The family of this 411-nucleotide RNA sequence from Methylobacterium nodulans is "Bacterial RNase P class A". Rfam classes the family as a ribozyme. The source organism's lineage runs through Bacteria, Pseudomonadota, Hyphomicrobiales, Methylobacteriaceae and Methylobacterium nodulans. Gene Ontology terms of the family: ribonuclease P activity, tRNA processing and dimeric ribonuclease P complex. About the family: Ribonuclease P (RNase P) is a ubiquitous endoribonuclease, found in archaea, bacteria and eukarya as well as chloroplasts and mitochondria. The base pairs follow the family's consensus structure, which is taken from published work.
RNA sequence: UCAGCCGGCCGGGCGGCCGCUCCGCCUUCGGGUGGGGAGGAAAGUCCGGGCUCCAUGGAGAGACGGUGCCGGAUAACCUCCGGCGGGGGUGACCCCAGGGACAGUGCCACAGAGAGGAGACCGCCGCGCGCACCUCCGGGUGCCUUAGCGGUAAGGGUGAAAGGGUGCGGUAAGAGCGCACCGCGGACGCGGCAACGCGGACGGCACGGCAAACCCCACCGGGAGCAAAACCGAAUAGGGGCGACAGGCGCCGGCCUUCGGGCCGGCGCGAGGCGUUCUCCAGCCCCGUCGCCCGGGUUGGUUGCUUGAGGCGGCCGGCGACGGCCGUCCCAGAGGAAUGGCCGCCACGUCCGGGGAGCCUUCGGGUUCCGCCGGGCCCUACAGAACCCGGCUUACAGGCCGGCUGAUACU
Dot-bracket structure: ((((((((((((((((((.(((((((....)))))))....[[[.[[[[[((((.....[[[.((((((((((.....)))))(((((....)))).)((...(((((............(((((((....................)))))..)).......((((((.......))))))(((..((((....))))..)).)..)))..)))))))))))))...((((......((((((...........................((.((.]]]..)).)).)))))).....))))......((((((((....))))))))..........)))))))........................................]]]]]]]].).))))))))))....